TPP riboswitch aptamer (THI element): a 101-nucleotide RNA from Clostridium putrefaciens. NCBI's taxonomy places the organism under Bacteria, Bacillota, Clostridia, Clostridiaceae, Clostridium. Pairs were carried over by alignment from the consensus structure, which is taken from published work. From the family's description: Vitamin B(1) in its active form thiamin pyrophosphate (TPP) is an essential coenzyme that is synthesised by coupling of pyrimidine and thiazole moieties in bacteria. For this family Rfam cites "Comparative genomics of thiamin biosynthesis in procaryotes. New genes and regulatory mechanisms" (Rodionov et al., J Biol Chem, 2002).
RNA sequence: UAUAUAGGCUAGGGGUGCUGCAAAGCUGAGAUUGGAAUUUUUUCCUGACCCUUGUACCUGAACUGGGUAAUUCCAGCGUAGGAAAGCGGAGAAUGUGAUUA
Numbered sequence: 001u002a003u004a005u006a007g008g009c010u011a012g013g014g015g016u017g018c019u020g021c022a023a024a025g026c027u028g029a030g031a032u033u034g035g036a037a038u039u040u041u042u043u044c045c046u047g048a049c050c051c052u053u054g055u056a057c058c059u060g061a062a063c064u065g066g067g068u069a070a071u072u073c074c075a076g077c078g079u080a081g082g083a084a085a086g087c088g089g090a091g092a093a094u095g096u097g098a099u100u101a
Stems, first nucleotide, its partner, number of pairs: 008087003011052004017026003034045004057082004063076004